The family of this 240-nucleotide RNA sequence from Panicum virgatum is "Early nodulin 40". By type it is a non-coding RNA gene. For this family Rfam cites "Identification of conserved secondary structures and expansion segments in enod40 RNAs reveals new enod40 homologues in plants" (Gultyaev and Roussis, Nucleic Acids Res, 2007). A search with the family's covariance model found it, with a score of 90 bits. The organism belongs to Panicum sect. Hiantes, within Eukaryota.

RNA sequence: AUGGAGGCUGCUUGGCAGGAGCGUCUCCAUGGUUCUUGAGAGCUGCGUAAGUAAUACAGCAGUAUAAGGAUGGAGGACAAUGGCUGAGCUGGGCUCCUCCUCCUCAUCAAUCAUCAGUUUGCAUUUGCCCAUGCCUCUCAUGGCCUUCUUCCCUGGCUUCCAGUUCCAGAUGGCUCGGUGAGGCGUGGACAGAAACCGGCAAGUCAGAAAUCGGCAAUGGUGAGCUCCUACAGGAGCCUA
Numbered sequence: 001a002u003g004g005a006g007g008c009u010g011c012u013u014g015g016c017a018g019g020a021g022c023g024u025c026u027c028c029a030u031g032g033u034u035c036u037u038g039a040g041a042g043c044u045g046c047g048u049a050a051g052u053a054a055u056a057c058a059g060c061a062g063u064a065u066a067a068g069g070a071u072g073g074a075g076g077a078c079a080a081u082g083g084c085u086g087a088g089c090u091g092g093g094c095u096c097c098u099c100c101u102c103c104u105c106a107u108c109a110a111u112c113a114u115c116a117g118u119u120u121g122c123a124u125u126u127g128c129c130c131a132u133g134c135c136u137c138u139c140a141u142g143g144c145c146u147u148c149u150u151c152c153c154u155g156g157c158u159u160c161c162a163g164u165u166c167c168a169g170a171u172g173g174c175u176c177g178g179u180g181a182g183g184c185g186u187g188g189a190c191a192g193a194a195a196c197c198g199g200c201a202a203g204u205c206a207g208a209a210a211u212c213g214g215c216a217a218u219g220g221u222g223a224g225c226u227c228c229u230a231c232a233g234g235a236g237c238c239u240a
Stems, first nucleotide, its partner, number of pairs: 068103003117196004134183003224237004